[Rfam]
RNA sequence: UGGCAAUGAAGAAGGAAAUCCGUGUGCUGGAGGCAUCCGCCGGACGCCGGUGUCAGUUGCAAAAAUCCUCUAAGAAGGUCUGAGCCA
Number, nucleotide and partner (000 for none) at each position: 001u087002g086003g085004c084005a000006a000007u000008g000009a000010a000011g000012a000013a000014g000015g000016a000017a000018a000019u000020c000021c000022g000023u000024g000025u000026g000027c000028u000029g000030g000031a000032g000033g000034c000035a000036u000037c000038c000039g000040c000041c000042g000043g000044a000045c000046g000047c000048c000049g000050g000051u000052g000053u000054c000055a000056g000057u000058u000059g000060c000061a000062a000063a000064a000065a000066u000067c000068c000069u000070c000071u000072a000073a000074g000075a000076a000077g000078g000079u000080c000081u000082g000083a000084g004085c003086c002087a001

Description: The record is an 87-nucleotide RNA sequence from Dichanthelium oligosanthes, which matches "Small nucleolar RNA U61" in Rfam. For this family Rfam cites "Plant snoRNA database" (Brown et al., Nucleic Acids Res, 2003). Gene Ontology terms of the family: RNA processing and nucleolus. The family's RNA type in Rfam is C/D-box small nucleolar RNA. Its Rfam clan is "SNORD61 clan". Lineage of the source: Eukaryota > Viridiplantae > Magnoliopsida > Dichantheliinae > Dichanthelium.